[Rfam]
RNA sequence: GGCCUCUCCCAGUGCUUACCACAGGCUGUGUUCUUACAUUGCUUGUACAGAAAGAGAAGGCAGGGUACACCCAACCAUAUACACCUCAGCUCAGGCCACUUGACAGAUCUGUGUUGCAAAUGGGGAAACAUGG
Numbered sequence: 001g002g003c004c005u006c007u008c009c010c011a012g013u014g015c016u017u018a019c020c021a022c023a024g025g026c027u028g029u030g031u032u033c034u035u036a037c038a039u040u041g042c043u044u045g046u047a048c049a050g051a052a053a054g055a056g057a058a059g060g061c062a063g064g065g066u067a068c069a070c071c072c073a074a075c076c077a078u079a080u081a082c083a084c085c086u087c088a089g090c091u092c093a094g095g096c097c098a099c100u101u102g103a104c105a106g107a108u109c110u111g112u113g114u115u116g117c118a119a120a121u122g123g124g125g126a127a128a129c130a131u132g133g
Stems, first nucleotide, its partner, number of pairs: 002061004006056002022045003028039004075123004087111003091107002094104001096102001
This 133-nucleotide sequence from Myotis myotis belongs to the Rfam family "Small nucleolar RNA SNORA51".
Rfam links the family to the GO terms RNA processing and nucleolus.
The source organism's lineage runs through Eukaryota, Eumetazoa, Eutheria, Vespertilionidae and Myotis.
From the family's description: ACA51 is a member of the H/ACA class of snoRNA that guide the sites of modification of uridines to pseudouridines.
Pairs were carried over by alignment from the consensus structure, which was predicted with PFOLD.